Notes: The family of this 78-nucleotide RNA sequence from Petromyzon marinus is "mir-19 microRNA precursor family". NCBI's taxonomy places the organism under Eukaryota, Eumetazoa, Chordata, Vertebrata, Petromyzon. The family's consensus secondary structure was predicted with RNAalifold. Its family is annotated with RISC complex and miRNA-mediated post-transcriptional gene silencing in the Gene Ontology. Rfam's curators put it in the seed alignment.
RNA sequence: UCUCCCUGCCAGUUUUGCAUGUUUGCUGUCGGCUUGUCAAAAUGUGCUGUGCAAAUCCAUGCAAAACUGACGGUGAGU
Numbered sequence: 001u002c003u004c005c006c007u008g009c010c011a012g013u014u015u016u017g018c019a020u021g022u023u024u025g026c027u028g029u030c031g032g033c034u035u036g037u038c039a040a041a042a043u044g045u046g047c048u049g050u051g052c053a054a055a056u057c058c059a060u061g062c063a064a065a066a067c068u069g070a071c072g073g074u075g076a077g078u
Stems, first nucleotide, its partner, number of pairs: 003076002006073003010069012022055005031048003